Rfam assigns this 103-nucleotide sequence from Coprococcus eutactus to the family "c-di-GMP-I riboswitch aptamer". Its family is annotated with cyclic-di-GMP binding in the Gene Ontology.

[Rfam]
RNA sequence: AUAAAUAUUUAGUAAACCCGUUGAAAAGCGGUGACACAAAGCCAUAUGGGUCUAAGGUCUGAAAACAGAGAACUGUUUCGGACUAUGACAGCCGGUUGCAGUA
Number, nucleotide and partner (000 for none) at each position: 001a000002u000003a000004a000005a000006u000007a000008u000009u000010u000011a000012g037013u036014a000015a000016a000017c000018c031019c030020g029021u028022u027023g000024a000025a000026a000027a022028g021029c020030g019031g018032u000033g000034a000035c000036a013037c012038a000039a000040a097041g096042c095043c094044a000045u000046a000047u000048g093049g092050g089051u088052c087053u000054a000055a000056g000057g083058u082059c081060u080061g079062a078063a077064a076065a000066c000067a000068g000069a000070g000071a000072a000073c000074u000075g000076u064077u063078u062079c061080g060081g059082a058083c057084u000085a000086u000087g052088a051089c050090a000091g000092c049093c048094g043095g042096u041097u040098g000099c000100a000101g000102u000103a000